[Rfam]
RNA sequence: CACUCCGAAAAAGCCGUGAUGAUUGAAACACGGCGCCGAAGGGGCAACUCUCUGUUUAGCGGGGAAGAAUCUCUCAGGUUGUAGACGGAGAG
Number, nucleotide and partner (000 for none) at each position: 001c092002a000003c090004u089005c088006c087007g086008a000009a000010a000011a000012a000013g000014c033015c032016g031017u030018g000019a000020u000021g000022a000023u000024u000025g000026a000027a000028a000029c000030a017031c016032g015033g014034c000035g079036c078037c077038g075039a074040a000041g000042g073043g072044g071045c000046a000047a000048c000049u065050c064051u063052c062053u061054g060055u059056u000057u000058a000059g055060c054061g053062g052063g051064g050065a049066a000067g000068a000069a000070u000071c044072u043073c042074u039075c038076a000077g037078g036079u035080u000081g000082u000083a000084g000085a000086c007087g006088g005089a004090g003091a000092g001
This 92-nucleotide RNA sequence from Treponema primitia belongs to the Rfam family "Glycine riboswitch aptamer". Its Rfam clan is "Glycine riboswitch clan". The source organism's lineage runs through Bacteria, Spirochaetota, Spirochaetia, Treponematales and Treponema primitia.